[Rfam]
RNA sequence: UGGGCGUCAGGGUGUGAGUGCGCAGAGCGCGCGGACACUGCAGAUCGCAUGGCACGUUUCCGUUUUUGACCACGGAUGUACUGGCAGGGAUGUAGAAACGUAAAGGAAAGGCCGGUUUUCACCGGCCUUUUUGCUU
Numbered sequence: 001u002g003g004g005c006g007u008c009a010g011g012g013u014g015u016g017a018g019u020g021c022g023c024a025g026a027g028c029g030c031g032c033g034g035a036c037a038c039u040g041c042a043g044a045u046c047g048c049a050u051g052g053c054a055c056g057u058u059u060c061c062g063u064u065u066u067u068g069a070c071c072a073c074g075g076a077u078g079u080a081c082u083g084g085c086a087g088g089g090a091u092g093u094a095g096a097a098a099c100g101u102a103a104a105g106g107a108a109a110g111g112c113c114g115g116u117u118u119u120c121a122c123c124g125g126c127c128u129u130u131u132u133g134c135u136u
Stems, first nucleotide, its partner, number of pairs: 004048003007044002017039004052101002056099003061092004067086002070084003102135001105132011

A member of the RNA family "Alphaproteobacterial sRNA ar35" from Rhizobium sp. PDO1-076, 136 nucleotides long. Lineage of the source: Bacteria > Pseudomonadota > Alphaproteobacteria > Rhizobiaceae > Rhizobium. It is annotated as a small RNA. The match comes from Rfam's covariance-model search (57 bits).